Notes: Rfam assigns this 210-nucleotide RNA from cf. Phormidesmis sp. LEGE 11477 to the family "Glutamine riboswitch aptamer (glnA leader)".

[Rfam]
RNA sequence: ACCGUUCAUCUUUCUAUGAGUCAAUCGCAGUUGACACUCAUCCUCUCUUUGUAGAGCUAUGUGCAUACAGCUAGACAGAAGUUAGGAGCCCUUGGCUAGAGAAAGACGGAAGUAAGAGCACACAAAAAAUACGCAGCAGACUGAUGAAGUCUUAUGCCGUGACACUCUCAUGCAGUGACAGUCGCAUGCAGUGCUCUGAAGGAACGCGCC
Numbered sequence: 001a002c003c004g005u006u007c008a009u010c011u012u013u014c015u016a017u018g019a020g021u022c023a024a025u026c027g028c029a030g031u032u033g034a035c036a037c038u039c040a041u042c043c044u045c046u047c048u049u050u051g052u053a054g055a056g057c058u059a060u061g062u063g064c065a066u067a068c069a070g071c072u073a074g075a076c077a078g079a080a081g082u083u084a085g086g087a088g089c090c091c092u093u094g095g096c097u098a099g100a101g102a103a104a105g106a107c108g109g110a111a112g113u114a115a116g117a118g119c120a121c122a123c124a125a126a127a128a129a130u131a132c133g134c135a136g137c138a139g140a141c142u143g144a145u146g147a148a149g150u151c152u153u154a155u156g157c158c159g160u161g162a163c164a165c166u167c168u169c170a171u172g173c174a175g176u177g178a179c180a181g182u183c184g185c186a187u188g189c190a191g192u193g194c195u196c197u198g199a200a201g202g203a204a205c206g207c208g209c210c
Stems, first nucleotide, its partner, number of pairs: 003206005009106007109207001115197007